[Rfam]
RNA: Potassium channel RNA editing signal
Organism: Leptobrachium leishanense
RNA sequence: GUUGGAUAUGGAGACAUGUACCCCCUCACCAUAGGGGGUAAAAUCGUUGGUUCUCUGUGUGCCAUAGCUGGUGUGUUAACCAUUGCUCUUCCUGUCCCAGUUAUAGUUUCGAAU
Numbered sequence: 001g002u003u004g005g006a007u008a009u010g011g012a013g014a015c016a017u018g019u020a021c022c023c024c025c026u027c028a029c030c031a032u033a034g035g036g037g038g039u040a041a042a043a044u045c046g047u048u049g050g051u052u053c054u055c056u057g058u059g060u061g062c063c064a065u066a067g068c069u070g071g072u073g074u075g076u077u078a079a080c081c082a083u084u085g086c087u088c089u090u091c092c093u094g095u096c097c098c099a100g101u102u103a104u105a106g107u108u109u110c111g112a113a114u
Base pairs, nucleotide, nucleotide: 001114002113005110008107009106011104013102014101015100018097020095021094037077038076039075040074049063050062051061